The record is a 72-nucleotide RNA sequence from Caenorhabditis auriculariae, which matches "HDV ribozyme from F. prausnitzii" in Rfam.
The organism belongs to Caenorhabditis, within Eukaryota.
The family has 48 seed sequences and 3,803 matches in Rfam 15.1.
Rfam links the family to the GO term catalytic activity.
A search with the family's covariance model found it, with a score of 45 bits.

[Rfam]
RNA sequence: CCCGGUUUUAUCAAGUACCACCUCUACGCGGUGAUAGGGAGGCAACGCCAUUUAUGGCGGCUAAAGGUACAC
Numbered sequence: 001c002c003c004g005g006u007u008u009u010a011u012c013a014a015g016u017a018c019c020a021c022c023u024c025u026a027c028g029c030g031g032u033g034a035u036a037g038g039g040a041g042g043c044a045a046c047g048c049c050a051u052u053u054a055u056g057g058c059g060g061c062u063a064a065a066g067g068u069a070c071a072c
Base pairs, nucleotide, nucleotide: 001039002038003037005035006034007033020032021031022030046059047058048057049056050055